[Rfam]
The record is a 117-nucleotide sequence from Candidatus Brocadia fulgida, which matches "Group II catalytic intron D1-D4-2" in Rfam.
About the family: Group II introns are found in rRNA, tRNA and mRNA of organelles in fungi, plants and protists, and also in mRNA in bacteria.
The pairing is the family consensus, mapped onto this sequence.
RNA sequence: GAAGGCAUGUCCUUCGAGAUCGAUUUUAGGAGUAGGUCUCAAACCGCCCUACGCUGCUGUGAUAAGGAGCCGGGGUAGGUUGGAUUGAAUGAAAUGAAACCCAACGAAUUUCAACGU
Numbered sequence: 001g002a003a004g005g006c007a008u009g010u011c012c013u014u015c016g017a018g019a020u021c022g023a024u025u026u027u028a029g030g031a032g033u034a035g036g037u038c039u040c041a042a043a044c045c046g047c048c049c050u051a052c053g054c055u056g057c058u059g060u061g062a063u064a065a066g067g068a069g070c071c072g073g074g075g076u077a078g079g080u081u082g083g084a085u086u087g088a089a090u091g092a093a094a095u096g097a098a099a100c101c102c103a104a105c106g107a108a109u110u111u112c113a114a115c116g117u
Base pairs, nucleotide, nucleotide: 001015002014003013004012005011016040017039018038019037020036021035023033024032025031026030045116048083049082051080052079054078056076057075058074060072061071063069090113091112092111093110094109095108
Taxonomically the source falls in Candidatus Brocadia (Bacteria, Pseudomonadati, Candidatus Brocadiia, Candidatus Brocadiaceae). For this family Rfam cites "The ins and outs of group II introns" (Bonen and Vogel, Trends Genet, 2001).